[Rfam]
RNA: U1 spliceosomal RNA
Organism: Pogona vitticeps
RNA sequence: AUUCAUACUUUGUAGGGGAAAUGCCAUGUUGUCAAAAUGGUUUUUCCAGGGAGAGGCUCAUCCAUUGCACUUUGGGUGUGCUGUUGACCCGUGAUUUCCCCAAAUGUGGGGAAUUCAAUUAUAUAAUUUGUGUUAAUGGGGGUGUUAUGUUUGUGAUUUCUGU
Numbered sequence: 001a002u003u004c005a006u007a008c009u010u011u012g013u014a015g016g017g018g019a020a021a022u023g024c025c026a027u028g029u030u031g032u033c034a035a036a037a038u039g040g041u042u043u044u045u046c047c048a049g050g051g052a053g054a055g056g057c058u059c060a061u062c063c064a065u066u067g068c069a070c071u072u073u074g075g076g077u078g079u080g081c082u083g084u085u086g087a088c089c090c091g092u093g094a095u096u097u098c099c100c101c102a103a104a105u106g107u108g109g110g111g112a113a114u115u116c117a118a119u120u121a122u123a124u125a126a127u128u129u130g131u132g133u134u135a136a137u138g139g140g141g142g143u144g145u146u147a148u149g150u151u152u153g154u155g156a157u158u159u160c161u162g163u
Base pairs, nucleotide, nucleotide: 012122013121014120015119016047017046018045019044020043021042023041024040025039026038027037049090050089051088053085055082056081057080059078060077061076062075063074092117093116094115095113096112097111099109100108139163141161142160144159148155149154